Annotation:
This 65-nucleotide RNA from Paraburkholderia sp. DHOC27 belongs to the Rfam family "Fluoride riboswitch aptamer (crcB RNA motif)". Gene Ontology terms of the family: positive regulation of gene expression and response to fluoride. NCBI's taxonomy places the organism under Bacteria, Pseudomonadota, Betaproteobacteria, Burkholderiales, Paraburkholderia. The family has 289 seed sequences and 2,293 matches in Rfam 15.1. The base pairs follow the family's consensus structure, which is taken from published work.
RNA sequence: UCGUGCCAUGGAGAUGGCAUUCUCCAUUAACCGCCGGUAUACCGGCUGAUGAUGCCUGCGAAUCC
Numbered sequence: 001u002c003g004u005g006c007c008a009u010g011g012a013g014a015u016g017g018c019a020u021u022c023u024c025c026a027u028u029a030a031c032c033g034c035c036g037g038u039a040u041a042c043c044g045g046c047u048g049a050u051g052a053u054g055c056c057u058g059c060g061a062a063u064c065c
Stems, first nucleotide, its partner, number of pairs: 010025004016056006033046004